[Rfam]
RNA sequence: UUUCAUCGCUUUGAGACCGCGACAUGUUCACUGACAAAAAUCCAAGAUGCAGCACAGAGUUUUGUCAGUGAACAUGUCGCGGUCUCAAAGCGACGGAA
Numbered sequence: 001u002u003u004c005a006u007c008g009c010u011u012u013g014a015g016a017c018c019g020c021g022a023c024a025u026g027u028u029c030a031c032u033g034a035c036a037a038a039a040a041u042c043c044a045a046g047a048u049g050c051a052g053c054a055c056a057g058a059g060u061u062u063u064g065u066c067a068g069u070g071a072a073c074a075u076g077u078c079g080c081g082g083u084c085u086c087a088a089a090g091c092g093a094c095g096g097a098a
Base pairs, nucleotide, nucleotide: 001098002097003096004095006093007092008091009090014085015084016083017082019080020079021078022077023076028071029070030069031068032067033066034065035064036063037062038061039060

Description:
Shown here is a 98-nucleotide RNA from Octopus sinensis, a member of the family "mir-25 microRNA precursor family". The source organism's lineage runs through Eukaryota, Mollusca, Cephalopoda, Octopodiformes and Octopus. The match comes from Rfam's covariance-model search (41 bits). A reference for the family is Landgraf et al. (2007), "A mammalian microRNA expression atlas based on small RNA library sequencing", Cell.